[Rfam]
RNA sequence: CCUCCGGAGACGCCGAACCGGGCGCCGGCACCGUGCCGGUGCCCGGACCGGGGACCCAAGGCAGCAACUGGGGUGGAGCGCGACUCGUCGCGCCGGGCGACUCCUCCGUCCGAACCCGUCAGCUAACCCGGUAGGCGGUCGUGGAGAACAGGA
Numbered sequence: 001c002c003u004c005c006g007g008a009g010a011c012g013c014c015g016a017a018c019c020g021g022g023c024g025c026c027g028g029c030a031c032c033g034u035g036c037c038g039g040u041g042c043c044c045g046g047a048c049c050g051g052g053g054a055c056c057c058a059a060g061g062c063a064g065c066a067a068c069u070g071g072g073g074u075g076g077a078g079c080g081c082g083a084c085u086c087g088u089c090g091c092g093c094c095g096g097g098c099g100a101c102u103c104c105u106c107c108g109u110c111c112g113a114a115c116c117c118g119u120c121a122g123c124u125a126a127c128c129c130g131g132u133a134g135g136c137g138g139u140c141g142u143g144g145a146g147a148a149c150a151g152g153a
Stems, first nucleotide, its partner, number of pairs: 011137004018046013047132006057070002071117003079092004095111004

Overview:
Shown here is a 153-nucleotide RNA sequence from Geodermatophilus sp. DF01-2, a member of the family "c-di-AMP riboswitch aptamer (ydaO/yuaA leader)". From the family's description: This family represents a conserved RNA structure found upstream of the ydaO and yuaA genes in Bacillus subtilis and related genes in other bacteria.